RNA: TPP riboswitch aptamer (THI element)
Organism: Sporosarcina pasteurii
RNA sequence: AUUGACCAUUAGGGGAAUCCUUGAAAAGGACUGAGAGAAGAGUACAACUCUGAUACCCUUAUUACCUGAACAGGUUUGGACCUGCGUAGGGAAGUGGCCGUCAGAUUAU
Numbered sequence: 001a002u003u004g005a006c007c008a009u010u011a012g013g014g015g016a017a018u019c020c021u022u023g024a025a026a027a028g029g030a031c032u033g034a035g036a037g038a039a040g041a042g043u044a045c046a047a048c049u050c051u052g053a054u055a056c057c058c059u060u061a062u063u064a065c066c067u068g069a070a071c072a073g074g075u076u077u078g079g080a081c082c083u084g085c086g087u088a089g090g091g092a093a094g095u096g097g098c099c100g101u102c103a104g105a106u107u108a109u
Stems, first nucleotide, its partner, number of pairs: 006097005011059004018030004039051004065090004071084004